RNA sequence: AUCAAUCCUCGUUAGGUGAGGCUCCUAUAUGGAAGUAAGCUGCUACCCAGAAACGUCGAGAGACACCAAUGGGUUAACAGAGACUAUCGACUUAAGGUAGUUUUUAAUGCAGUGGGAUGGAAAUCCAGGCCAUAUAGUGCUAAAACUCCACGAUGGAGGCUUCGU
Numbered sequence: 001a002u003c004a005a006u007c008c009u010c011g012u013u014a015g016g017u018g019a020g021g022c023u024c025c026u027a028u029a030u031g032g033a034a035g036u037a038a039g040c041u042g043c044u045a046c047c048c049a050g051a052a053a054c055g056u057c058g059a060g061a062g063a064c065a066c067c068a069a070u071g072g073g074u075u076a077a078c079a080g081a082g083a084c085u086a087u088c089g090a091c092u093u094a095a096g097g098u099a100g101u102u103u104u105u106a107a108u109g110c111a112g113u114g115g116g117a118u119g120g121a122a123a124u125c126c127a128g129g130c131c132a133u134a135u136a137g138u139g140c141u142a143a144a145a146c147u148c149c150a151c152g153a154u155g156g157a158g159g160c161u162u163c164g165u
Base pairs, nucleotide, nucleotide: 005161007159008158009157010156011151012150013095015147016146017145020141021140022139025137026136027135028134029133030132031131032130039113040112041111042110043109045074046073047072048071049070055064056063057062080104081103082102083101086098087097088096115126116125117124